[Rfam]
RNA sequence: UUCAGAUCAAUGAUGUGAUAAAAAUACUGCGUUAUCUAUCUUAAAAUCUCCGUAAUAGGAGUUGCGGAAACUAAACAGAAAACGCUGAGAUCUGAA
Number, nucleotide and partner (000 for none) at each position: 001u096002u095003c094004a093005g092006a091007u090008c000009a000010a000011u000012g000013a000014u000015g000016u000017g000018a000019u000020a000021a000022a000023a000024a000025u000026a000027c000028u000029g000030c000031g000032u000033u000034a000035u000036c000037u000038a000039u000040c000041u000042u000043a000044a000045a000046a000047u000048c000049u000050c000051c000052g000053u000054a000055a000056u000057a000058g000059g000060a000061g000062u000063u000064g000065c000066g000067g000068a000069a000070a000071c000072u000073a000074a000075a000076c000077a000078g000079a000080a000081a000082a000083c000084g000085c000086u000087g000088a000089g000090a007091u006092c005093u004094g003095a002096a001

Shown here is a 96-nucleotide RNA from Arabis alpina, a member of the family "Small nucleolar RNA snoR27". The base pairs follow the family's consensus structure, which was predicted with WAR. Lineage of the source: Eukaryota > Mesangiospermae > Gunneridae > Brassicaceae > Arabis. Gene Ontology terms of the family: RNA processing and nucleolus. It scores 66 bits against the family's covariance model.